[Rfam]
RNA: mir-988 microRNA precursor family
Organism: Drosophila busckii
RNA sequence: GCAUUGUGUGCGUGUGAUUUGUGGCAAUGCGAUUUGCUUUGGAUUCCAUCCCCUUGUUGCAAACCUCACGCUCAAAGUGC
Numbered sequence: 001g002c003a004u005u006g007u008g009u010g011c012g013u014g015u016g017a018u019u020u021g022u023g024g025c026a027a028u029g030c031g032a033u034u035u036g037c038u039u040u041g042g043a044u045u046c047c048a049u050c051c052c053c054u055u056g057u058u059g060c061a062a063a064c065c066u067c068a069c070g071c072u073c074a075a076a077g078u079g080c
Base pairs, nucleotide, nucleotide: 002079003078004077005076007074010071011070012069013068014067016065018063019062020061021060022059023058024057025056026055027054029052031050032049033048